[Rfam]
RNA: eL15-Euryarchaeota ribosomal protein leader
RNA sequence: CGGGAUCCGUCCCGGUGAAAAGGAAUGUAGCUCAGCAAUGAGCCGAAC
Numbered sequence: 001c002g003g004g005a006u007c008c009g010u011c012c013c014g015g016u017g018a019a020a021a022g023g024a025a026u027g028u029a030g031c032u033c034a035g036c037a038a039u040g041a042g043c044c045g046a047a048c
Stems, first nucleotide, its partner, number of pairs: 001014005023048001030043005